Rfam assigns this 156-nucleotide RNA sequence from Populus deltoides to the family "MIR2912 microRNA precursor family". The base pairs follow the family's consensus structure, which was predicted with RNAalifold. Rfam links the family to the GO terms RISC complex and miRNA-mediated post-transcriptional gene silencing.
RNA sequence: UCUACAACUCGAGAUAUGAAUUGAACACUAAACAUUAUCUAGGCUGCAGGACAGAUUCAAACUUUUUUUUUGUUGUUAAGAUGUGAACUUCAAAAUGGCAGAAUUGAGUCUUGGACUCUGCAUGAAUGUUUUAGUUCUAUGUCUUAUCUUUCUAUC
Numbered sequence: 001u002c003u004a005c006a007a008c009u010c011g012a013g014a015u016a017u018g019a020a021u022u023g024a025a026c027a028c029u030a031a032a033c034a035u036u037a038u039c040u041a042g043g044c045u046g047c048a049g050g051a052c053a054g055a056u057u058c059a060a061a062c063u064u065u066u067u068u069u070u071u072g073u074u075g076u077u078a079a080g081a082u083g084u085g086a087a088c089u090u091c092a093a094a095a096u097g098g099c100a101g102a103a104u105u106g107a108g109u110c111u112u113g114g115a116c117u118c119u120g121c122a123u124g125a126a127u128g129u130u131u132u133a134g135u136u137c138u139a140u141g142u143c144u145u146a147u148c149u150u151u152c153u154a155u156c
Stems, first nucleotide, its partner, number of pairs: 003154002006151002009146001011145008020136001021134005027129002036122001041119003045115001048112005054105005062098002068092001072088003
Dot-bracket structure: ..((.((.(.((((((((.((((((.((.......(....(((.(..(((((.(((((...((....(...(((...........)))...)....))..)))))..)))))..).)))..).....))))))).).)))))))))...)).))..
A search with the family's covariance model found it, with a score of 118 bits.